Notes
Rfam assigns this 80-nucleotide RNA to the family "RAGATH-1 hammerhead ribozyme". A reference for the family is Weinberg et al. (2015), "New classes of self-cleaving ribozymes revealed by comparative genomics analysis", Nat Chem Biol. The family's consensus secondary structure is taken from published work.

[Rfam]
Nucleotides: 080
Base pairs, nucleotide, nucleotide: 002018003017004016005015008044009043010042011041012040027079028078029077030076038046050074051073052072053071054070055069056068057066
Number, partner (000 for none) and nucleotide at each position: 001000a002018a003017c004016u005015c006000a007000g008044c009043u010042a011041g012040g013000g014000a015005g016004a017003g018002u019000c020000u021000a022000a023000c024000a025000u026000a027079a028078u029077c030076a031000c032000u033000g034000a035000u036000g037000a038046g039000a040012c041011c042010u043009a044008g045000a046038c047000g048000a049000a050074a051073c052072u053071a054070c055069a056068c057066a058000u059000u060000g061000c062000a063000u064000c065000a066057u067000a068056g069055u070054g071053u072052a073051g074050u075000c076030u077029g078028a079027u080000a